[Rfam]
RNA sequence: UGUACUUCCUUGGCAGUGUCUAAGAAGUACU
Numbered sequence: 001u002g003u004a005c006u007u008c009c010u011u012g013g014c015a016g017u018g019u020c021u022a023a024g025a026a027g028u029a030c031u
Base pairs, nucleotide, nucleotide: 002030003029004028005027006026007025009024010023011022012021013020014018